The family of this 99-nucleotide RNA sequence from an Acidimicrobiia bacterium is "SAH (S-adenosyl-L-homocysteine) riboswitch aptamer". The organism belongs to Acidimicrobiia, within Bacteria. A search with the family's covariance model found it, with a score of 52 bits. The base pairs follow the family's consensus structure, which is taken from published work.
RNA sequence: CUCGCCGAGGGGCGUUGCGACCGCGCCGUCGAUCGACGGAAAGCGGCCAGGCUCGGCAGGGGCGCACGCUGAGCAAUCAGCAAACGGCGCCCGCUCGCU
Numbered sequence: 001c002u003c004g005c006c007g008a009g010g011g012g013c014g015u016u017g018c019g020a021c022c023g024c025g026c027c028g029u030c031g032a033u034c035g036a037c038g039g040a041a042a043g044c045g046g047c048c049a050g051g052c053u054c055g056g057c058a059g060g061g062g063c064g065c066a067c068g069c070u071g072a073g074c075a076a077u078c079a080g081c082a083a084a085c086g087g088c089g090c091c092c093g094c095u096c097g098c099u
Base pairs, nucleotide, nucleotide: 002059004057005056006055007054008053021046022045023044024043